[Rfam]
RNA sequence: GCGUCAUGCCCUUCCUGGGCGUUUCCUCCCUAAAGACUUUAAAUGCCGCGCCUUCGGGCGCGGCUUUUUUUUGGUCCCGG
Numbered sequence: 001g002c003g004u005c006a007u008g009c010c011c012u013u014c015c016u017g018g019g020c021g022u023u024u025c026c027u028c029c030c031u032a033a034a035g036a037c038u039u040u041a042a043a044u045g046c047c048g049c050g051c052c053u054u055c056g057g058g059c060g061c062g063g064c065u066u067u068u069u070u071u072u073g074g075u076c077c078c079g080g
Stems, first nucleotide, its partner, number of pairs: 008020004045064008
Dot-bracket structure: .......((((.....))))........................((((((((....))))))))................